[Rfam]
RNA sequence: AUAACAAAUUUGUGAUACUUCAGGGGGCCUAUUGUUUCGCGGUUUAUAGAAGCCAGAUUUGCCUUUUUUUGACAGACCUCCAAUCUAUUAGUACUUUCAAAUCCGUUGCAAUGGCUUCCUUUUCAUUGGAUUUUCCUCUUUUUCCUUUGGUUUAGUUUAUUUUUAUAUAAGUUAUCCCAAGGAGGAGAGAGGAAGAGAAUGAUGAGUGUCGUAGAUAAAUCUUCGGUUCCGAAUAGUCUGACUAUUGGUAUUGAGGGAAUCCAUCUUUAAAACCAUCGCCGUUAGAGGUUGCUUCCGGUUUAUUCGGUUAAGCGACCCAUGAAAUGGUGAUGACCUAAAGUAUGGAACAUCU
Numbered sequence: 001a002u003a004a005c006a007a008a009u010u011u012g013u014g015a016u017a018c019u020u021c022a023g024g025g026g027g028c029c030u031a032u033u034g035u036u037u038c039g040c041g042g043u044u045u046a047u048a049g050a051a052g053c054c055a056g057a058u059u060u061g062c063c064u065u066u067u068u069u070u071g072a073c074a075g076a077c078c079u080c081c082a083a084u085c086u087a088u089u090a091g092u093a094c095u096u097u098c099a100a101a102u103c104c105g106u107u108g109c110a111a112u113g114g115c116u117u118c119c120u121u122u123u124c125a126u127u128g129g130a131u132u133u134u135c136c137u138c139u140u141u142u143u144c145c146u147u148u149g150g151u152u153u154a155g156u157u158u159a160u161u162u163u164u165a166u167a168u169a170a171g172u173u174a175u176c177c178c179a180a181g182g183a184g185g186a187g188a189g190a191g192g193a194a195g196a197g198a199a200u201g202a203u204g205a206g207u208g209u210c211g212u213a214g215a216u217a218a219a220u221c222u223u224c225g226g227u228u229c230c231g232a233a234u235a236g237u238c239u240g241a242c243u244a245u246u247g248g249u250a251u252u253g254a255g256g257g258a259a260u261c262c263a264u265c266u267u268u269a270a271a272a273c274c275a276u277c278g279c280c281g282u283u284a285g286a287g288g289u290u291g292c293u294u295c296c297g298g299u300u301u302a303u304u305c306g307g308u309u310a311a312g313c314g315a316c317c318c319a320u321g322a323a324a325u326g327g328u329g330a331u332g333a334c335c336u337a338a339a340g341u342a343u344g345g346a347a348c349a350u351c352u
Base pairs, nucleotide, nucleotide: 014210015209016208017207018206019205020204023118024117026116027115028114029113031112032111033110034109035108039106040105041104042103044101045100046088047087048086049085050084055079056078058076059075061073063071133195134194136192137191142188146182147181148180149178150177153174154173155172156171157170158169159168160167221256222255223254224253225252226251227250229248230247232246233245234244235243236242260346261345262344263343264342265340266339274332275331276330277329278328279327280326281325282324283323287317288316289315290314291313292312293311294310295307296306297305298304
The family of this 352-nucleotide RNA sequence from Saccharomyces kudriavzevii is "Small nucleolar RNA snR42".
The literature on the family includes a 1998 paper in RNA by Watkins et al., "Cbf5p, a potential pseudouridine synthase, and Nhp2p, a putative RNA-binding protein, are present together with Gar1p in all H BOX/ACA-motif snoRNPs and constitute a common bipartite structure".
By type it is an H/ACA-box small nucleolar RNA.